[Rfam]
RNA sequence: GUAUCACUUUAGGGGUGUUCCGGCCCGCGCCGGAACUGAGAUGAUACCCUCAGUACCUGAUGCAGUUCGCACUGACGUAGGGAAAAGUAAUACUGAACUC
Numbered sequence: 001g002u003a004u005c006a007c008u009u010u011a012g013g014g015g016u017g018u019u020c021c022g023g024c025c026c027g028c029g030c031c032g033g034a035a036c037u038g039a040g041a042u043g044a045u046a047c048c049c050u051c052a053g054u055a056c057c058u059g060a061u062g063c064a065g066u067u068c069g070c071a072c073u074g075a076c077g078u079a080g081g082g083a084a085a086a087g088u089a090a091u092a093c094u095g096a097a098c099u100c
Stems, first nucleotide, its partner, number of pairs: 006088005011050004016044001017036007056081004063074003